Record summary
Rfam assigns this 52-nucleotide RNA sequence from Jhaorihella thermophila to the family "ffh sRNA". The family's consensus secondary structure is taken from published work. The family's RNA type in Rfam is small RNA.
RNA sequence: GUGUCCGAGGAUCGCCCCCCAUCAGCGCGUCGCGCCCAUGGGGGCGCGCGUC
Number, nucleotide and partner (000 for none) at each position: 001g000002u000003g000004u000005c000006c000007g000008a000009g000010g000011a000012u000013c000014g000015c000016c044017c043018c042019c041020c040021a039022u038023c000024a000025g035026c034027g033028c032029g000030u000031c000032g028033c027034g026035c025036c000037c000038a022039u021040g020041g019042g018043g017044g016045c000046g000047c000048g000049c000050g000051u000052c000